[Rfam]
RNA sequence: AGUUUCUCCCCUGUUUCUUGGACGUUUCCUCCCUAAACUUGGCGGUGCAUCAUUGCACCGCCUUUUUUUUAUUCUGC
Numbered sequence: 001a002g003u004u005u006c007u008c009c010c011c012u013g014u015u016u017c018u019u020g021g022a023c024g025u026u027u028c029c030u031c032c033c034u035a036a037a038c039u040u041g042g043c044g045g046u047g048c049a050u051c052a053u054u055g056c057a058c059c060g061c062c063u064u065u066u067u068u069u070u071a072u073u074c075u076g077c
Base pairs, nucleotide, nucleotide: 010021011020041062042061043060044059045058046057047056048055049054
The family of this 77-nucleotide sequence from Acidocella aminolytica is "Makes More Granules Regulator RNA (mmgR)". The family's RNA type in Rfam is small RNA. The literature on the family includes a 2005 paper in Genome Biol by Corbino et al., "Evidence for a second class of S-adenosylmethionine riboswitches and other regulatory RNA motifs in alpha-proteobacteria". Gene Ontology terms of the family: response to nitrogen compound, DNA-templated transcription, termination and protein binding. A search with the family's covariance model found it, with a score of 55 bits. Pairs were carried over by alignment from the consensus structure. Clan: suhB sRNA clan.